[Rfam]
RNA sequence: CCCUGACAGCCGCAUUGGGCGGCUGACUUAACCCAGACAGGAGAUAGACAUG
Numbered sequence: 001c002c003c004u005g006a007c008a009g010c011c012g013c014a015u016u017g018g019g020c021g022g023c024u025g026a027c028u029u030a031a032c033c034c035a036g037a038c039a040g041g042a043g044a045u046a047g048a049c050a051u052g
Stems, first nucleotide, its partner, number of pairs: 002041004007025005
Mu-gpT-DE RNA: a 52-nucleotide sequence. Rfam's curators put it in the seed alignment. The family's RNA type in Rfam is small RNA.